This 224-nucleotide RNA sequence from Nitrosococcus halophilus belongs to the Rfam family "HNH endonuclease-associated RNA and ORF (HEARO) RNA". Taxonomically the source falls in Nitrosococcus halophilus (Bacteria, Chromatiales, Chromatiaceae, Nitrosococcus). The base pairs follow the family's consensus structure, which is taken from published work. It is annotated as a non-coding RNA gene. The literature on the family includes a 2009 paper in Nature by Weinberg et al., "Exceptional structured noncoding RNAs revealed by bacterial metagenome analysis".
Nucleotides: 224
Stems, first nucleotide, its partner, number of pairs: 001063007010040002012037002041054004066210003070206001071085005088204010103138002107132008119217005140186010154174005
Number, partner (000 for none) and nucleotide at each position: 001063g002062u003061c004060a005059a006058c007057u008000a009000c010040c011039c012037c013036c014000c015000c016000u017000a018000a019000u020000c021000g022000c023000a024000a025000a026000g027000c028000g029000a030000u031000c032000u033000a034000g035000u036013g037012g038000g039011g040010g041054c042053u043052u044051g045000u046000a047000a048000a049000a050000g051044c052043a053042g054041g055000c056000c057007a058006g059005u060004u061003g062002a063001c064000c065000a066210g067209c068208u069000u070206g071085a072084g073083u074082g075081c076000u077000u078000u079000g080000g081075g082074c083073a084072c085071u086000a087000c088204g089203a090202c091201a092200g093199a094198g095197c096196g097195g098000c099000g100000a101000u102000c103138a104137c105000a106000c107132c108131c109130u110129g111128g112127a113126a114125u115000g116000c117000g118000c119217g120216a121215g122214c123213c124000a125114g126113u127112u128111c129110c130109a131108g132107g133000c134000u135000c136000u137104g138103u139000g140186g141185a142184g143183c144182g145181u146180u147179a148178u149177c150000a151000u152000g153000c154174u155173g156172c157171g158170g159000c160000g161000a162000g163000g164000g165000g166000u167000a168000a169000a170158c171157c172156g173155c174154g175000a176000a177149g178148g179147u180146g181145g182144c183143g184142u185141u186140c187000u188000u189000a190000a191000c192000a193000a194000c195097c196096c197095g198094c199093u200092u201091u202090g203089u204088c205000u206070u207000u208068a209067g210066c211000g212000a213123g214122g215121c216120u217119c218000a219000c220000g221000u222000u223000a224000c